[Rfam]
MIR530 microRNA precursor family: a 210-nucleotide RNA sequence from Camellia sinensis. Pairs were carried over by alignment from the consensus structure, which was predicted with WAR.
RNA sequence: GCCAAUAUGUUGCCUUUAUCUGCAUUUGCACCUGCACCUGAUAUACACACCAUCUCUCUCUCUCUCUCGCUCUCUCUCUCUCUCUCUCUAUAUAUAUAGCUCAUGAAUAUUGGGCAGUAAAUUGUUUGUUAGAGAGAGAGAGAGAGAGAGAGAGAGAAUCAUGAUUCAUGAUGAGGUGCAGGUUCAUAUGCAGGUGAAUGCCAUUUUGGU
Number, nucleotide and partner (000 for none) at each position: 001g210002c209003c208004a207005a206006u000007a204008u203009g202010u000011u000012g201013c200014c000015u198016u197017u196018a195019u194020c193021u192022g191023c190024a189025u188026u000027u186028g185029c000030a183031c182032c181033u180034g179035c178036a177037c176038c175039u174040g000041a000042u000043a000044u000045a000046c000047a000048c000049a000050c000051c000052a000053u000054c140055u139056c138057u137058c136059u135060c134061u133062c000063u000064c132065u000066c000067u000068c000069g000070c000071u000072c000073u000074c000075u000076c000077u000078c000079u000080c000081u000082c000083u000084c000085u000086c000087u000088c000089u000090a000091u000092a000093u000094a000095u000096a000097u000098a000099g000100c000101u000102c000103a000104u000105g000106a000107a000108u000109a000110u000111u000112g000113g000114g000115c000116a000117g000118u000119a000120a000121a000122u000123u000124g000125u000126u000127u000128g000129u000130u000131a000132g064133a061134g060135a059136g058137a057138g056139a055140g054141a000142g000143a000144g000145a000146g000147a000148g000149a000150g000151a000152g000153a000154g000155a000156g000157a000158a000159u000160c000161a000162u000163g000164a000165u000166u000167c000168a000169u000170g000171a000172u000173g000174a039175g038176g037177u036178g035179c034180a033181g032182g031183u030184u000185c028186a027187u000188a025189u024190g023191c022192a021193g020194g019195u018196g017197a016198a015199u000200g013201c012202c009203a008204u007205u000206u005207u004208g003209g002210u001
The family has 3 seed sequences and 119 matches in Rfam 15.1.